[Rfam]
RNA sequence: AACUUAAUCGUCAUUCUCCUUCGUAUAUCCUCGGGAAUAGGGCCCGAGAGUCUCUACCGGGGCGCCGUUAACGCCCUGACUAUGAAGGUGGAAAUCAGGAUA
Numbered sequence: 001a002a003c004u005u006a007a008u009c010g011u012c013a014u015u016c017u018c019c020u021u022c023g024u025a026u027a028u029c030c031u032c033g034g035g036a037a038u039a040g041g042g043c044c045c046g047a048g049a050g051u052c053u054c055u056a057c058c059g060g061g062g063c064g065c066c067g068u069u070a071a072c073g074c075c076c077u078g079a080c081u082a083u084g085a086a087g088g089u090g091g092a093a094a095u096c097a098g099g100a101u102a
Stems, first nucleotide, its partner, number of pairs: 018088008030048006058078007
RNA: Purine riboswitch aptamer
Organism: Halobacillus salinus